[Rfam]
RNA sequence: GCGAGGUGACGAUAGAAAUUCAUUGGUCUGUCAAUCCACUGAAUAAACAUAACUUUGAUGUUACUAUGAAUCCCGACAGGUUCUGAUCGC
Numbered sequence: 001g002c003g004a005g006g007u008g009a010c011g012a013u014a015g016a017a018a019u020u021c022a023u024u025g026g027u028c029u030g031u032c033a034a035u036c037c038a039c040u041g042a043a044u045a046a047a048c049a050u051a052a053c054u055u056u057g058a059u060g061u062u063a064c065u066a067u068g069a070a071u072c073c074c075g076a077c078a079g080g081u082u083c084u085g086a087u088c089g090c
Stems, first nucleotide, its partner, number of pairs: 001090004
Rfam assigns this 90-nucleotide RNA sequence from Ricinus communis to the family "Small nucleolar RNA snoR14".
It is one of the family's seed sequences.
A reference for the family is Brown et al. (2001), "Multiple snoRNA gene clusters from Arabidopsis", RNA.
Clan: SNORD110 clan.